This 75-nucleotide RNA from Adenophora remotiflora belongs to the Rfam family "Plastid-ycf2 5UTR RNA". The base pairs follow the family's consensus structure, which was predicted with LocARNA. The family has 204 seed sequences and 3,521 matches in Rfam 15.1. From the family's description: Plastid ycf2 is a non-coding RNA (ncRNA) recognised in plastids. It was found in the prime untranslated region (5UTR) of ycf2 genes, it presents a tRNA-like motif which suggests it can be involved in mRNA maturation, particularly involved in defining the precise 5' end of the transcript. NCBI's taxonomy places the organism under Eukaryota, Spermatophyta, asterids, Campanulaceae, Adenophora. The literature on the family includes a 2023 paper in Plant Commun by Richter et al., "Retrograde signaling in plants: A critical review focusing on the GUN pathway and beyond".
RNA sequence: GGGCAUCCAGUAGAAAUUGAACCUACGAGUUCACCAAUUAUGAGUUGGGUGCUUUAACCAUUCAGCCAUGGAUGC
Numbered sequence: 001g002g003g004c005a006u007c008c009a010g011u012a013g014a015a016a017u018u019g020a021a022c023c024u025a026c027g028a029g030u031u032c033a034c035c036a037a038u039u040a041u042g043a044g045u046u047g048g049g050u051g052c053u054u055u056a057a058c059c060a061u062u063c064a065g066c067c068a069u070g071g072a073u074g075c
Base pairs, nucleotide, nucleotide: 003075004074005073006072007071008070010026011025012024013023040069041068042067044066045065046064047063048062049061050060051059
Dot-bracket structure: ..((((((.((((.........)))).............(((.((((((((.......)))))))))))))))))